[Rfam]
Nucleotides: 105
Stems, first nucleotide, its partner, number of pairs: 003103003011094009022083019042063001044061006
Number, partner (000 for none) and nucleotide at each position: 001000a002000u003103a004102u005101a006000a007000c008000a009000c010000u011094u012093u013092u014091u015090g016089c017088u018087a019086u020000u021000c022083u023082c024081g025080g026079u027078c028077a029076a030075u031074a032073a033072c034071g035070u036069a037068a038067u039066g040065a041000c042063a043000g044061g045060u046059g047058g048057g049056a050000u051000a052000a053000u054000u055000u056049u057048u058047u059046c060045a061044c062000g063042u064000a065040u066039c067038a068037u069036u070035g071034u072033g073032u074031u075030a076029u077028u078027g079026g080025c081024c082023g083022a084000a085000a086019a087018u088017a089016g090015c091014a092013a093012a094011a095000u096000a097000a098000u099000g100000u101005u102004a103003u104000u105000c
Source information
The family of this 105-nucleotide sequence from Prunus yedoensis is "MIR6274 microRNA precursor family". Gene Ontology terms of the family: miRNA-mediated post-transcriptional gene silencing and RISC complex. Pairs were carried over by alignment from the consensus structure, which was predicted with RNAalifold.